[Rfam]
RNA sequence: AAUAAAAAAGCCCUGCAGAGAUUUCUGCAGGGUCCUUCUAUUUCCAAAAGGAUAGAAGGGAAAGGGAGAGGAGAAACCGGAGGAAGAACUUAUGGGGAAACGUAAGUCUUCUCCGCGG
Numbered sequence: 001a002a003u004a005a006a007a008a009a010g011c012c013c014u015g016c017a018g019a020g021a022u023u024u025c026u027g028c029a030g031g032g033u034c035c036u037u038c039u040a041u042u043u044c045c046a047a048a049a050g051g052a053u054a055g056a057a058g059g060g061a062a063a064g065g066g067a068g069a070g071g072a073g074a075a076a077c078c079g080g081a082g083g084a085a086g087a088a089c090u091u092a093u094g095g096g097g098a099a100a101c102g103u104a105a106g107u108c109u110u111c112u113c114c115g116c117g118g
Stems, first nucleotide, its partner, number of pairs: 011032009033066005042054001043050001078115004083111004088107005